small nucleolar RNA snoR114: an 85-nucleotide RNA from Brassica oleracea. It is annotated as a C/D-box small nucleolar RNA. Rfam links the family to the GO terms RNA processing and nucleolus.
RNA sequence: GAGCUGUGAUGAAAUUGUGGCUUAAGCGAUGGUUGGGUCCUUCGCAAUCUUCUGAUUUCCAGAUGACAGCGCCGCACCUGAGCUC
Number, nucleotide and partner (000 for none) at each position: 001g085002a084003g083004c082005u000006g000007u000008g000009a000010u000011g000012a000013a000014a000015u000016u000017g000018u000019g000020g000021c000022u000023u000024a000025a000026g000027c000028g000029a000030u000031g000032g000033u000034u000035g000036g000037g000038u000039c000040c000041u000042u000043c000044g000045c000046a000047a000048u000049c000050u000051u000052c000053u000054g000055a000056u000057u000058u000059c000060c000061a000062g000063a000064u000065g000066a000067c000068a000069g000070c000071g000072c000073c000074g000075c000076a000077c000078c000079u000080g000081a000082g004083c003084u002085c001